Annotation:
Epstein-Barr virus nuclear antigen (EBNA) IRES: a 217-nucleotide sequence. The family's consensus secondary structure was predicted with PFOLD. Rfam's curators write: This family represents an Epstein-Barr virus internal ribosome entry site (IRES) which is found in the U leader exon in the 5' UTR of the Epstein-Barr nuclear antigen 1 (EBNA1) gene. The EBNA IRES allows EBNA1 translation to occur under situations where initiation from the 5' cap structure and ribosome scanning is reduced. It is thought that the EBNA IRES is necessary for the regulation of latent gene expression. By type it is an internal ribosome entry site. The family has 6 seed sequences and 6 matches in Rfam 15.1. The sequence is in the family's curated seed alignment.
RNA sequence: GUGGUGUAAAGUUUUGCCUGAACCUGUGGUUGGGCAGGUAACUUAGGAAGCGUUUCUUGAGCUUCCCUGGGAUGAGCGUUUGGGAGAGCUGAUUCUGCAGCCCAGAGAGUAGUCUCAGGGCAUCCUCUGGAGCCUGACCUGUGAUCGUCGCAUCAUAGACCGCCAGUAGACCUGGGAGCAGAUUCACCGCCGCGGCCGUCUCCUUUAAGUGUGAAUC
Numbered sequence: 001g002u003g004g005u006g007u008a009a010a011g012u013u014u015u016g017c018c019u020g021a022a023c024c025u026g027u028g029g030u031u032g033g034g035c036a037g038g039u040a041a042c043u044u045a046g047g048a049a050g051c052g053u054u055u056c057u058u059g060a061g062c063u064u065c066c067c068u069g070g071g072a073u074g075a076g077c078g079u080u081u082g083g084g085a086g087a088g089c090u091g092a093u094u095c096u097g098c099a100g101c102c103c104a105g106a107g108a109g110u111a112g113u114c115u116c117a118g119g120g121c122a123u124c125c126u127c128u129g130g131a132g133c134c135u136g137a138c139c140u141g142u143g144a145u146c147g148u149c150g151c152a153u154c155a156u157a158g159a160c161c162g163c164c165a166g167u168a169g170a171c172c173u174g175g176g177a178g179c180a181g182a183u184u185c186a187c188c189g190c191c192g193c194g195g196c197c198g199u200c201u202c203c204u205u206u207a208a209g210u211g212u213g214a215a216u217c
Stems, first nucleotide, its partner, number of pairs: 003018001050193003059127003064085004091124002097121002102119002129188002134181003139158007163175004